[Rfam]
RNA sequence: UGGCUGUGAGGACUAACUACUUUGUUUCUCGAUGCUGACUUGAUUCAAUCAAUCAAGGACCAAAAAAAUUUGAUGACCUUUGUGCGUGUCUGAGCCAC
Numbered sequence: 001u002g003g004c005u006g007u008g009a010g011g012a013c014u015a016a017c018u019a020c021u022u023u024g025u026u027u028c029u030c031g032a033u034g035c036u037g038a039c040u041u042g043a044u045u046c047a048a049u050c051a052a053u054c055a056a057g058g059a060c061c062a063a064a065a066a067a068a069u070u071u072g073a074u075g076a077c078c079u080u081u082g083u084g085c086g087u088g089u090c091u092g093a094g095c096c097a098c
Base pairs, nucleotide, nucleotide: 001097002096003095004094
Overview: Rfam assigns this 98-nucleotide RNA sequence from Oryza sativa to the family "small nucleolar RNA snoR126". NCBI's taxonomy places the organism under Eukaryota, Viridiplantae, Oryzeae, Oryza, Oryza sativa. On this family, see Chen and Wu, Nucleic Acids Res 2009: "Mining small RNA sequencing data: a new approach to identify small nucleolar RNAs in Arabidopsis". It is annotated as a C/D-box small nucleolar RNA.